Record summary
Shown here is a 296-nucleotide RNA sequence from Chara braunii, a member of the family "Metazoan signal recognition particle RNA". Rfam's curators write: The signal recognition particle (SRP) is a universally conserved ribonucleoprotein. It is involved in the co-translational targeting of proteins to membranes. The eukaryotic SRP consists of a 300-nucleotide 7S RNA and six proteins: SRPs 72, 68, 54, 19, 14, and 9. Archaeal SRP consists of a 7S RNA and homologues of the eukaryotic SRP19 and SRP54 proteins. For this family Rfam cites "SRPDB: Signal Recognition Particle Database" (Rosenblad et al., Nucleic Acids Res, 2003). Rfam classes the family as a non-coding RNA gene. The organism belongs to Chara, within Eukaryota.
RNA sequence: GCCGGGACGAGUUGCGCCGUCCUGUAACCUGAGCUUUCGGGGGCUGGGUGAUGAGAAUUACGCCUCUCUUGUGGGAGCCUCGAUGGUCACGUCGAUAGCCUGUCCAUCUUGAACUGAGAUCCGUUAGUCCACCUUCUUCGGAAGUAGGGGGUGUGCUGAUGUUAGAGAGUGGGGGAACGCGUGAGGCGGGAAACCGAGCAACGAAGACCCUCCGAUCCUGGUGGCAAGAGGAUAGCGGGCUUGAGUGAUACCUUCAGAUCACUCCCACAAGUCGGAGUCGCAGGACUAUCACCUUU
Numbered sequence: 001g002c003c004g005g006g007a008c009g010a011g012u013u014g015c016g017c018c019g020u021c022c023u024g025u026a027a028c029c030u031g032a033g034c035u036u037u038c039g040g041g042g043g044c045u046g047g048g049u050g051a052u053g054a055g056a057a058u059u060a061c062g063c064c065u066c067u068c069u070u071g072u073g074g075g076a077g078c079c080u081c082g083a084u085g086g087u088c089a090c091g092u093c094g095a096u097a098g099c100c101u102g103u104c105c106a107u108c109u110u111g112a113a114c115u116g117a118g119a120u121c122c123g124u125u126a127g128u129c130c131a132c133c134u135u136c137u138u139c140g141g142a143a144g145u146a147g148g149g150g151g152u153g154u155g156c157u158g159a160u161g162u163u164a165g166a167g168a169g170u171g172g173g174g175g176a177a178c179g180c181g182u183g184a185g186g187c188g189g190g191a192a193a194c195c196g197a198g199c200a201a202c203g204a205a206g207a208c209c210c211u212c213c214g215a216u217c218c219u220g221g222u223g224g225c226a227a228g229a230g231g232a233u234a235g236c237g238g239g240c241u242u243g244a245g246u247g248a249u250a251c252c253u254u255c256a257g258a259u260c261a262c263u264c265c266c267a268c269a270a271g272u273c274g275g276a277g278u279c280g281c282a283g284g285a286c287u288a289u290c291a292c293c294u295u296u
Stems, first nucleotide, its partner, number of pairs: 001044003004023006028041003046294008058283002061280002064275002068271010082255002086249005092243001097241007104231002107229005113222004118217004122161007130153008139144001162166001169212001171210003180203003187196003